[Rfam]
RNA sequence: GUGCGGAUGACGGUGUCAUUUGCAGAGCUCUAAACAUUAUGAUUGUCUUAGCUCUUUGAAUGGUACUGCCAUGUGUAC
Numbered sequence: 001g002u003g004c005g006g007a008u009g010a011c012g013g014u015g016u017c018a019u020u021u022g023c024a025g026a027g028c029u030c031u032a033a034a035c036a037u038u039a040u041g042a043u044u045g046u047c048u049u050a051g052c053u054c055u056u057u058g059a060a061u062g063g064u065a066c067u068g069c070c071a072u073g074u075g076u077a078c
Stems, first nucleotide, its partner, number of pairs: 002077003007072003011068003015064007024055006
Dot-bracket structure: .(((..(((.(((.(((((((..((((((....................))))))..))))))).))).)))..))).